[Rfam]
RNA sequence: UCCACCGUGAGGUGGAAUCUGAAGGAAGCCUGUAGCAAAUUUGGGAACCGACGAACAGAAACCGGAUACAAGGCCCGACACGUGGGACAACCGUGCAAUGACCCGGGACGUCCAAGAGGCCACCGUAAGCGUUAGGGUAAAUCCGGCGGUUUUCAAAGGAAGAGGAAUAGAC
Number, nucleotide and partner (000 for none) at each position: 001u016002c015003c014004a013005c012006c011007g000008u000009g000010a000011g006012g005013u004014g003015g002016a001017a000018u000019c000020u000021g000022a000023a000024g000025g000026a000027a000028g172029c000030c170031u169032g168033u000034a000035g000036c162037a000038a000039a000040u157041u156042u155043g154044g153045g152046a151047a150048c149049c148050g147051a000052c000053g000054a000055a000056c000057a000058g000059a000060a000061a000062c146063c145064g144065g143066a142067u141068a000069c000070a000071a000072g000073g138074c137075c135076c000077g133078a132079c131080a000081c000082g130083u129084g000085g113086g112087a111088c110089a000090a000091c106092c105093g104094u000095g000096c000097a000098a000099u000100g000101a000102c000103c000104c093105g092106g091107g000108a000109c000110g088111u087112c086113c085114a000115a000116g000117a000118g000119g000120c000121c000122a000123c000124c000125g000126u000127a000128a000129g083130c082131g079132u078133u077134a000135g075136g000137g074138u073139a000140a000141a067142u066143c065144c064145g063146g062147c050148g049149g048150u047151u046152u045153u044154c043155a042156a041157a040158g000159g000160a000161a000162g036163a000164g000165g000166a000167a000168u032169a031170g030171a000172c028
A member of the RNA family "Group II catalytic intron D1-D4-3", 172 nucleotides long. Rfam describes the family as follows. Group II introns are found in rRNA, tRNA and mRNA of organelles in fungi, plants and protists, and also in mRNA in bacteria. Gene Ontology term of the family: Group II intron splicing. The pairing is the family consensus, mapped onto this sequence.